The record is a 79-nucleotide RNA sequence from Medicago truncatula, which matches "MIR5269 microRNA precursor family" in Rfam. Pairs were carried over by alignment from the consensus structure, which was predicted with RNAalifold.
RNA sequence: UUGGGUGAAAUCAAUGUGGAUCCUACGCUUUGGAAAUGGGUCCCACAUAAAGUGGUGGGACCCACAUGGAUUCCACCAA
Numbered sequence: 001u002u003g004g005g006u007g008a009a010a011u012c013a014a015u016g017u018g019g020a021u022c023c024u025a026c027g028c029u030u031u032g033g034a035a036a037u038g039g040g041u042c043c044c045a046c047a048u049a050a051a052g053u054g055g056u057g058g059g060a061c062c063c064a065c066a067u068g069g070a071u072u073c074c075a076c077c078a079a
Stems, first nucleotide, its partner, number of pairs: 002079001004077004009072004014067005023058003026054007
Dot-bracket structure: .(.((((.((((.(((((....((((((((((...............))))))).)))....))))).)))).)))).)